[Rfam]
RNA sequence: ACCGCGUAACAGGGGCGCCCGCAACAGACGGGCUGAGAUGCACCCUUUGAACCUGAACCGGAUCAUGCCGGCGGAGGAAGUUGCGAUGAGACGGGG
Numbered sequence: 001a002c003c004g005c006g007u008a009a010c011a012g013g014g015g016c017g018c019c020c021g022c023a024a025c026a027g028a029c030g031g032g033c034u035g036a037g038a039u040g041c042a043c044c045c046u047u048u049g050a051a052c053c054u055g056a057a058c059c060g061g062a063u064c065a066u067g068c069c070g071g072c073g074g075a076g077g078a079a080g081u082u083g084c085g086a087u088g089a090g091a092c093g094g095g096g
Stems, first nucleotide, its partner, number of pairs: 006084005011046004016040001017033005052077003058071004
Description
Rfam assigns this 96-nucleotide RNA from Roseovarius nanhaiticus to the family "TPP riboswitch aptamer (THI element)". The source organism's lineage runs through Bacteria, Pseudomonadati, Pseudomonadota, Alphaproteobacteria and Roseovarius. The base pairs follow the family's consensus structure, which is taken from published work. It scores 69 bits against the family's covariance model.